[Rfam]
RNA sequence: UCAGUUGUAGAGAGUUUCCCUUCCGGGCUGAGUUACCAGCUCGCACCGGAACCGUAAAAAAGCCGACCUCACCAGUCGGUUUUUUUAC
Numbered sequence: 001u002c003a004g005u006u007g008u009a010g011a012g013a014g015u016u017u018c019c020c021u022u023c024c025g026g027g028c029u030g031a032g033u034u035a036c037c038a039g040c041u042c043g044c045a046c047c048g049g050a051a052c053c054g055u056a057a058a059a060a061a062g063c064c065g066a067c068c069u070c071a072c073c074a075g076u077c078g079g080u081u082u083u084u085u086u087a088c
Base pairs, nucleotide, nucleotide: 021051022050023049024048025047026046030042031041032040056085057084058083059082060081061080063079064078065077066076067075
The record is an 88-nucleotide RNA sequence from Arthrobacter mobilis, which matches "ArsR-gov region gene B" in Rfam. Gene Ontology terms of the family: antisense RNA metabolic process and gene silencing by RNA. The family's RNA type in Rfam is antisense RNA. From the family's description: arsR-gov region gene B is transcribed opposite of dinQ (translates into a toxic single transmembrane peptide) with 30 complimentary nucleotides. AgrB appears to repress accumulation of dinQ by RNA interference and counteracts its toxicity. The literature on the family includes a 2013 paper in PLoS Genet by Weel-Sneve et al., "Single transmembrane peptide DinQ modulates membrane-dependent activities". A search with the family's covariance model found it, with a score of 48 bits. The family's consensus secondary structure was predicted with RNAfold.